RNA sequence: AUGAAAUAAUGGCAAUACUUUUUAUCAACAAUAGUUCACCUUGUGAGUGUUGAUAAUUUGGGUAUGACUAA
Numbered sequence: 001a002u003g004a005a006a007u008a009a010u011g012g013c014a015a016u017a018c019u020u021u022u023u024a025u026c027a028a029c030a031a032u033a034g035u036u037c038a039c040c041u042u043g044u045g046a047g048u049g050u051u052g053a054u055a056a057u058u059u060g061g062g063u064a065u066g067a068c069u070a071a
Stems, first nucleotide, its partner, number of pairs: 002070002009025003